Shown here is a 72-nucleotide RNA sequence from Ktedonobacteria bacterium brp13, a member of the family "tRNA". Rfam links the family to the GO term triplet codon-amino acid adaptor activity. Taxonomically the source falls in Ktedonobacteria (Bacteria, Bacillati, Chloroflexota). Rfam classes the family as a transfer RNA. The match comes from Rfam's covariance-model search (69 bits). Transfer RNA (tRNA) molecules are approximately 80 nucleotides in length. Their secondary structure includes four short double-helical elements and three loops (D, anti-codon, and T loops). Further hydrogen bonds mediate the characteristic L-shaped molecular structure. tRNAs have two regions of fundamental functional importance: the anti-codon, which is responsible for specific mRNA codon recognition, and the 3' end, to which the tRNAs corresponding amino acid is attached (by aminoacyl-tRNA synthetases). tRNAs cope with the degeneracy of the genetic code in two manners: having more than one tRNA (with a specific anti-codon) for a particular amino acid; and 'wobble' base-pairing, i.e. permitting non-standard base-pairing at the 3rd anti-codon position.

RNA sequence: GCGGGAGUAACUCAGUGGUAGAGUUCCUGCCUUCCAAGCAGGCUGUCGCGAGUUCGAAUCUCGUCUCCCGCU
Numbered sequence: 001g002c003g004g005g006a007g008u009a010a011c012u013c014a015g016u017g018g019u020a021g022a023g024u025u026c027c028u029g030c031c032u033u034c035c036a037a038g039c040a041g042g043c044u045g046u047c048g049c050g051a052g053u054u055c056g057a058a059u060c061u062c063g064u065c066u067c068c069c070g071c072u
Base pairs, nucleotide, nucleotide: 001071002070003069004068005067006066007065010024011023012022013021026042027041028040029039030038048064049063050062051061052060